ALIL pseudoknot: a 117-nucleotide RNA sequence from Salinarimonas ramus. A search with the family's covariance model found it, with a score of 107 bits.
[Rfam]
RNA sequence: GGCUUAUUUCGCGAUGGCGGAGCUCGACCGCCGGUCGAAGACAUGAUCGCGUUCGUCGACGAUCAUCGAGGUGCGUACGGAGUCGAGCCGAUCUGCCGCGAGCUGCCGAUCGCCCCG
Dot-bracket structure: ...............(((((.......))))).............................................(((.(......((.((.((.(....).)).)).))).)))
Numbered sequence: 001g002g003c004u005u006a007u008u009u010c011g012c013g014a015u016g017g018c019g020g021a022g023c024u025c026g027a028c029c030g031c032c033g034g035u036c037g038a039a040g041a042c043a044u045g046a047u048c049g050c051g052u053u054c055g056u057c058g059a060c061g062a063u064c065a066u067c068g069a070g071g072u073g074c075g076u077a078c079g080g081a082g083u084c085g086a087g088c089c090g091a092u093c094u095g096c097c098g099c100g101a102g103c104u105g106c107c108g109a110u111c112g113c114c115c116c117g
Stems, first nucleotide, its partner, number of pairs: 016032005078117003082113001089112002092109002095106002098103001

Gene Ontology term of the family: positive regulation of translational frameshifting. The source organism's lineage runs through Bacteria, Pseudomonadati, Pseudomonadota, Hyphomicrobiales and Salinarimonas. For this family Rfam cites "Apical loop-internal loop RNA pseudoknots: a new type of stimulator of -1 translational frameshifting in bacteria" (Mazauric et al., J Biol Chem, 2008).